RNA sequence: GAUAGGCUUUUCCAUGCAGGGAGGGUCGGCCAGCUCCCCAAUACGGGGUGAAUGGGGGUGAUGGCCGUGGAUACGUUUGAGGUUUUUAUGGUAAUGUUCACAUUCGGAACCUUUUUAAUCGCGCUGUUCACGUUGGUAAUAAAAUUAACAAAUAAAAAAUAGACCUCCCUGCCGACGAUAGUGAGAGGUCUAUGCAAUCAUGGCUGCUCCCCUGAAGGGAACAAGCUUAUCUAUCGGCCGCAGUUGCAGCUGCGGCCG
Numbered sequence: 001g002a003u004a005g006g007c008u009u010u011u012c013c014a015u016g017c018a019g020g021g022a023g024g025g026u027c028g029g030c031c032a033g034c035u036c037c038c039c040a041a042u043a044c045g046g047g048g049u050g051a052a053u054g055g056g057g058g059u060g061a062u063g064g065c066c067g068u069g070g071a072u073a074c075g076u077u078u079g080a081g082g083u084u085u086u087u088a089u090g091g092u093a094a095u096g097u098u099c100a101c102a103u104u105c106g107g108a109a110c111c112u113u114u115u116u117a118a119u120c121g122c123g124c125u126g127u128u129c130a131c132g133u134u135g136g137u138a139a140u141a142a143a144a145u146u147a148a149c150a151a152a153u154a155a156a157a158a159a160u161a162g163a164c165c166u167c168c169c170u171g172c173c174g175a176c177g178a179u180a181g182u183g184a185g186a187g188g189u190c191u192a193u194g195c196a197a198u199c200a201u202g203g204c205u206g207c208u209c210c211c212c213u214g215a216a217g218g219g220a221a222c223a224a225g226c227u228u229a230u231c232u233a234u235c236g237g238c239c240g241c242a243g244u245u246g247c248a249g250c251u252g253c254g255g256c257c258g
Base pairs, nucleotide, nucleotide: 001231002230003229004228005227007225008224009223011221013206016172017171018170019169020168021167023164026161031060032059034058035057036056037055038054069137073133074132075131082097083096106129107128108127182200183199208220209219210218211217235258236257237256238255239254240253241252242251243250244249
Dot-bracket structure: (((((.(((.(.(..((((((.(..(....((.(((((...............)))))))........(...(((......((............))........(((..................))).)))...).......................)..)..)))))).........((...............)).....).((((.....))))).))).)))))...((((((((((....))))))))))